The family of this 135-nucleotide sequence from Otolemur garnettii is "Small nucleolar RNA U109".
[Rfam]
RNA sequence: AUCCAUGUAGAAAUGUCUGUUCCUCAUUCCUUUGGGAGCAGAAAUACGUUCAUACCACGCUACAUUAAUAAAGGAGUUCUUAAGGCUGCCAGCCUUGUAGUAGAAGCUGAAGGGUGGUAUGUUUCUUCUACAUAA
Numbered sequence: 001a002u003c004c005a006u007g008u009a010g011a012a013a014u015g016u017c018u019g020u021u022c023c024u025c026a027u028u029c030c031u032u033u034g035g036g037a038g039c040a041g042a043a044a045u046a047c048g049u050u051c052a053u054a055c056c057a058c059g060c061u062a063c064a065u066u067a068a069u070a071a072a073g074g075a076g077u078u079c080u081u082a083a084g085g086c087u088g089c090c091a092g093c094c095u096u097g098u099a100g101u102a103g104a105a106g107c108u109g110a111a112g113g114g115u116g117g118u119a120u121g122u123u124u125c126u127u128c129u130a131c132a133u134a135a
Stems, first nucleotide, its partner, number of pairs: 004059001006057002016042008073128004085115002090109004095104002

Source information
Taxonomically the source falls in Otolemur (Eukaryota, Deuterostomia, Chordata, Dipnotetrapodomorpha). For this family Rfam cites "A novel experimental approach for systematic identification of box H/ACA snoRNAs from eukaryotes" (Gu et al., Nucleic Acids Res, 2005). A search with the family's covariance model found it, with a score of 107 bits.